[Rfam]
RNA sequence: CACGAAGUUUAUAUCGUUGCCAAUAUAGUUCCGGAUGUACGGCCCGGAUGUCUCUACCGCAGCGCCAAAGCUGCGACUAUUGGAAGUUCGCUCACGCAG
Numbered sequence: 001c002a003c004g005a006a007g008u009u010u011a012u013a014u015c016g017u018u019g020c021c022a023a024u025a026u027a028g029u030u031c032c033g034g035a036u037g038u039a040c041g042g043c044c045c046g047g048a049u050g051u052c053u054c055u056a057c058c059g060c061a062g063c064g065c066c067a068a069a070g071c072u073g074c075g076a077c078u079a080u081u082g083g084a085a086g087u088u089c090g091c092u093c094a095c096g097c098a099g
Base pairs, nucleotide, nucleotide: 018085020083021082022081023080024079025078030048031047032046033045034044058075059074060073061072062071063070